Molybdenum/Tungsten riboswitch aptamer (Moco RNA motif): a 120-nucleotide sequence from Thermovirga lienii. The family's consensus secondary structure is taken from published work. The source organism's lineage runs through Bacteria, Thermotogati, Synergistota, Thermovirga and Thermovirga lienii.
RNA sequence: UUUUCAUUGUGCCUCCGAGCUGAAGCUCCUAAAGGUCCAAUCCUAUGGAGCCCAGCCGAAGGGUAUUCCUGGAAACAGGAGUGCCUCCCGUGUUUGGAAAGGAGGGAUGAGCAUGUUCAU
Numbered sequence: 001u002u003u004u005c006a007u008u009g010u011g012c013c014u015c016c017g018a019g020c021u022g023a024a025g026c027u028c029c030u031a032a033a034g035g036u037c038c039a040a041u042c043c044u045a046u047g048g049a050g051c052c053c054a055g056c057c058g059a060a061g062g063g064u065a066u067u068c069c070u071g072g073a074a075a076c077a078g079g080a081g082u083g084c085c086u087c088c089c090g091u092g093u094u095u096g097g098a099a100a101g102g103a104g105g106g107a108u109g110a111g112c113a114u115g116u117u118c119a120u
Stems, first nucleotide, its partner, number of pairs: 004113001012105005019056004025051005033044003061086011087097002